The record is a 78-nucleotide sequence from Geobacter sulfurreducens, which matches "pan motif" in Rfam. It is one of the family's seed sequences. The source organism's lineage runs through Bacteria, Pseudomonadati, Desulfuromonadia, Geobacteraceae and Geobacter sulfurreducens. Pairs were carried over by alignment from the consensus structure, which is taken from published work.
[Rfam]
RNA sequence: GGCCCGCAACCCAGGUGGAGCCGUCAUCCUUUUUUUCGGAUAUACUGCCUGGAUUCACGACUGAACCGGGACGGAAGG
Numbered sequence: 001g002g003c004c005c006g007c008a009a010c011c012c013a014g015g016u017g018g019a020g021c022c023g024u025c026a027u028c029c030u031u032u033u034u035u036u037c038g039g040a041u042a043u044a045c046u047g048c049c050u051g052g053a054u055u056c057a058c059g060a061c062u063g064a065a066c067c068g069g070g071a072c073g074g075a076a077g078g
Base pairs, nucleotide, nucleotide: 001022002021003020004018005017006016007015010014045074046073047072048070049069050068051067052066054065055064056063